PyrR binding site: a 109-nucleotide RNA sequence from Listeria welshimeri. Taxonomically the source falls in Listeria welshimeri (Bacteria, Caryophanales, Listeriaceae, Listeria). The family's consensus secondary structure is taken from published work. The family's RNA type in Rfam is cis-regulatory element.
RNA sequence: ACACUUUUUUAAAAGCAGUCCUGUGAGGCUGACAAAGAGUGAUUAAUUUCUAUAUAUUUAGGGGAUUAUUCUAUACUCUUUGUCGACACAGACAAGGGGUAUUUUUUAU
Numbered sequence: 001a002c003a004c005u006u007u008u009u010u011a012a013a014a015g016c017a018g019u020c021c022u023g024u025g026a027g028g029c030u031g032a033c034a035a036a037g038a039g040u041g042a043u044u045a046a047u048u049u050c051u052a053u054a055u056a057u058u059u060a061g062g063g064g065a066u067u068a069u070u071c072u073a074u075a076c077u078c079u080u081u082g083u084c085g086a087c088a089c090a091g092a093c094a095a096g097g098g099g100u101a102u103u104u105u106u107u108a109u
Stems, first nucleotide, its partner, number of pairs: 003040007016031005041070003045066001047064006073102012